RNA sequence: ACGAUCCUUCGGGGCCGGGUGAAAUUCCCGACCGGCGGUGAUCCGGCGAACAGACGUUUGCCGGUCAGUCCGUGACCCGCGUUGAAUGAAUUGCGCCCGAUCGGUGAUAAGGAUGGCAGCCGCCAUUCCCGGCGAGAGCGUGCAUUCAACCGGUGGACUCGGUGCAACUCCGAGACCGACAGUAUAGUCUGGAUGGGAGAAGGAGCAU
Numbered sequence: 001a002c003g004a005u006c007c008u009u010c011g012g013g014g015c016c017g018g019g020u021g022a023a024a025u026u027c028c029c030g031a032c033c034g035g036c037g038g039u040g041a042u043c044c045g046g047c048g049a050a051c052a053g054a055c056g057u058u059u060g061c062c063g064g065u066c067a068g069u070c071c072g073u074g075a076c077c078c079g080c081g082u083u084g085a086a087u088g089a090a091u092u093g094c095g096c097c098c099g100a101u102c103g104g105u106g107a108u109a110a111g112g113a114u115g116g117c118a119g120c121c122g123c124c125a126u127u128c129c130c131g132g133c134g135a136g137a138g139c140g141u142g143c144a145u146u147c148a149a150c151c152g153g154u155g156g157a158c159u160c161g162g163u164g165c166a167a168c169u170c171c172g173a174g175a176c177c178g179a180c181a182g183u184a185u186a187g188u189c190u191g192g193a194u195g196g197g198a199g200a201a202g203g204a205g206c207a208u
Stems, first nucleotide, its partner, number of pairs: 003206001005204006017029003031188002033178002035073004068176002077153002158174005180191003

Annotation:
A member of the RNA family "FMN riboswitch aptamer (RFN element)" from Paenibacillus contaminans, 208 nucleotides long. Pairs were carried over by alignment from the consensus structure, which is taken from published work. Rfam's curators write: The RFN element is a highly conserved domain that is found frequently in the 5'-untranslated regions of prokaryotic mRNAs that encode for flavin mononucleotide (FMN) biosynthesis and transport proteins.